Shown here is a 128-nucleotide sequence from Helianthus annuus, a member of the family "Small nucleolar RNA SNORD14". Rfam links the family to the GO terms RNA processing and nucleolus. On this family, see Samarsky et al., Nucleic Acids Res 1996: "An essential domain in Saccharomyces cerevisiae U14 snoRNA is absent in vertebrates, but conserved in other yeasts". The organism belongs to Helianthus, within Eukaryota.

[Rfam]
RNA sequence: AACUGGUGAUGAUAAUCUUAAGGCUUGUUUCUCAGAAACAUUCGCAGUGGCCGACUAAGAGCUUUCGCCUUCGCCAGGCUUGAGAGCUUGUGCUGUCUUGCUCCUUCCUUCCUUGGAUGUCUGAACUU
Number, nucleotide and partner (000 for none) at each position: 001a128002a127003c000004u125005g000006g000007u000008g000009a000010u000011g000012a000013u000014a000015a000016u000017c000018u000019u000020a000021a000022g000023g000024c000025u000026u000027g000028u000029u000030u000031c000032u000033c000034a000035g000036a000037a000038a000039c000040a000041u000042u000043c000044g000045c000046a000047g000048u000049g000050g000051c000052c000053g000054a000055c000056u000057a000058a000059g000060a000061g087062c086063u085064u084065u083066c082067g000068c000069c000070u000071u000072c000073g000074c000075c000076a000077g000078g000079c000080u000081u000082g066083a065084g064085a063086g062087c061088u000089u000090g000091u000092g000093c000094u000095g000096u000097c000098u000099u000100g000101c000102u000103c000104c000105u000106u000107c000108c000109u000110u000111c000112c000113u000114u000115g000116g000117a000118u000119g000120u000121c000122u000123g000124a000125a004126c000127u002128u001
The family has 18 seed sequences and 4,559 matches in Rfam 15.1. Rfam describes the family as follows. U14 small nucleolar RNA (U14 snoRNA) is required for early cleavages of eukaryotic precursor rRNAs. In yeasts, this molecule possess a stem-loop region (known as the Y-domain) which is essential for function.